[Rfam]
RNA: Bacterial RNase P class A
Organism: Dialister histaminiformans
RNA sequence: CGAGCAGAAAAGAUGAUCGCGGGCCGCAAGGCGUGAGGAAAGUCCGAGCUUCGCAGGGCAGGAUGCCGGAUAACGUCCGGCGAGGGUGACCUCAGGGAAAGUGCCAUAGAAAAGGAGACCGCCACGUAAGUGGUAAGGGUGGAAAGGUGCGGUAAGAGCGCACCAGCAGUCAGGAGACUGGCUGGCUUGGUAAACCCCAUCCGAAGUAAGACCGAAUAGGGAAGGGAUGAAGUUGCCCGCCGACCUUCCGGGUAGAGUCGCUUGAGCAAACGGGCAACCGUUUGUCUAGAUAGAUGAUCAUCGCGUGGAAACGAACAGAACUCGGCUUAUUGAACGCUCGCCUC
Numbered sequence: 001c002g003a004g005c006a007g008a009a010a011a012g013a014u015g016a017u018c019g020c021g022g023g024c025c026g027c028a029a030g031g032c033g034u035g036a037g038g039a040a041a042g043u044c045c046g047a048g049c050u051u052c053g054c055a056g057g058g059c060a061g062g063a064u065g066c067c068g069g070a071u072a073a074c075g076u077c078c079g080g081c082g083a084g085g086g087u088g089a090c091c092u093c094a095g096g097g098a099a100a101g102u103g104c105c106a107u108a109g110a111a112a113a114g115g116a117g118a119c120c121g122c123c124a125c126g127u128a129a130g131u132g133g134u135a136a137g138g139g140u141g142g143a144a145a146g147g148u149g150c151g152g153u154a155a156g157a158g159c160g161c162a163c164c165a166g167c168a169g170u171c172a173g174g175a176g177a178c179u180g181g182c183u184g185g186c187u188u189g190g191u192a193a194a195c196c197c198c199a200u201c202c203g204a205a206g207u208a209a210g211a212c213c214g215a216a217u218a219g220g221g222a223a224g225g226g227a228u229g230a231a232g233u234u235g236c237c238c239g240c241c242g243a244c245c246u247u248c249c250g251g252g253u254a255g256a257g258u259c260g261c262u263u264g265a266g267c268a269a270a271c272g273g274g275c276a277a278c279c280g281u282u283u284g285u286c287u288a289g290a291u292a293g294a295u296g297a298u299c300a301u302c303g304c305g306u307g308g309a310a311a312c313g314a315a316c317a318g319a320a321c322u323c324g325g326c327u328u329a330u331u332g333a334a335c336g337c338u339c340g341c342c343u344c
Base pairs, nucleotide, nucleotide: 001340002339003338004337005336010331011330012302013301014300015299016298017297018296020035021034023032024031025030040328041327042326044325045324046323047322048321049206050205051204052203056238057237058236059235061202062201063200064199065198066080067079068078069077070076081095082093083092084091085090096197097196101195102194103191104190105189119138120137121134122133123132124131125130146164147163148162149161150160151159166186167184168183169182170181171180172179173178210259211258212257213255220249221248222247223246224245225244232240233239266285267284268283269282270281271280272279273278